[Rfam]
RNA: Bacterial large subunit ribosomal RNA, nucleotides 2837 to 3095
RNA sequence: GGAGUCUUGAGAAGAGCUGUCCUUAGUACGAGAGGACCGGGACGGACCAACCUCUGGUGUGCCAGUUGUCCUGCCAAGGGCACGGCUGGUUGGCUACGUUGGGAAGUGAUAACCGCUGAAAGCAUCUAAGCGGGAAGCACGCUUCAAGAUGAGGGCUCCCACAGCACAAGCUGGUAAGGCCCCCGGCAGACCACCGGGUGAUAGGUCGGAUGUGGAAGCACAGCAAUGUGUGGAGCUGACCGAUACUAAUAGGCCGAGG
Numbered sequence: 001g002g003a004g005u006c007u008u009g010a011g012a013a014g015a016g017c018u019g020u021c022c023u024u025a026g027u028a029c030g031a032g033a034g035g036a037c038c039g040g041g042a043c044g045g046a047c048c049a050a051c052c053u054c055u056g057g058u059g060u061g062c063c064a065g066u067u068g069u070c071c072u073g074c075c076a077a078g079g080g081c082a083c084g085g086c087u088g089g090u091u092g093g094c095u096a097c098g099u100u101g102g103g104a105a106g107u108g109a110u111a112a113c114c115g116c117u118g119a120a121a122g123c124a125u126c127u128a129a130g131c132g133g134g135a136a137g138c139a140c141g142c143u144u145c146a147a148g149a150u151g152a153g154g155g156c157u158c159c160c161a162c163a164g165c166a167c168a169a170g171c172u173g174g175u176a177a178g179g180c181c182c183c184c185g186g187c188a189g190a191c192c193a194c195c196g197g198g199u200g201a202u203a204g205g206u207c208g209g210a211u212g213u214g215g216a217a218g219c220a221c222a223g224c225a226a227u228g229u230g231u232g233g234a235g236c237u238g239a240c241c242g243a244u245a246c247u248a249a250u251a252g253g254c255c256g257a258g259g
Stems, first nucleotide, its partner, number of pairs: 001159008011145004017045007047102005055096003062089005067082006106140003113133005162173003175257001178255004182198005202248003205244005212236001218231005